[Rfam]
RNA sequence: UCCAUCGUGAGGUGGAAUCUGAAGGAAGCCGCAGGCAAAGUUCUGAGCCGACGAACAGAAAUCGCAUACAAGGCGGGGCAGAGCGGACGAGACUGCAACACAAGUCAAAGUCCCAUACUACCCGGACUCUGCCACGUAAAUGCGGCGGCUACAUGGAAUGAAGGCUAUUGUA
Numbered sequence: 001u002c003c004a005u006c007g008u009g010a011g012g013u014g015g016a017a018u019c020u021g022a023a024g025g026a027a028g029c030c031g032c033a034g035g036c037a038a039a040g041u042u043c044u045g046a047g048c049c050g051a052c053g054a055a056c057a058g059a060a061a062u063c064g065c066a067u068a069c070a071a072g073g074c075g076g077g078g079c080a081g082a083g084c085g086g087a088c089g090a091g092a093c094u095g096c097a098a099c100a101c102a103a104g105u106c107a108a109a110g111u112c113c114c115a116u117a118c119u120a121c122c123c124g125g126a127c128u129c130u131g132c133c134a135c136g137u138a139a140a141u142g143c144g145g146c147g148g149c150u151a152c153a154u155g156g157a158a159u160g161a162a163g164g165c166u167a168u169u170g171u172a
Stems, first nucleotide, its partner, number of pairs: 001016006030170002035165002040159006046150005062145006073137003077133007085113004091106004
The record is a 172-nucleotide RNA, which matches "Group II catalytic intron D1-D4-3" in Rfam. Pairs were carried over by alignment from the consensus structure. Its family is annotated with Group II intron splicing in the Gene Ontology. It is one of the family's seed sequences.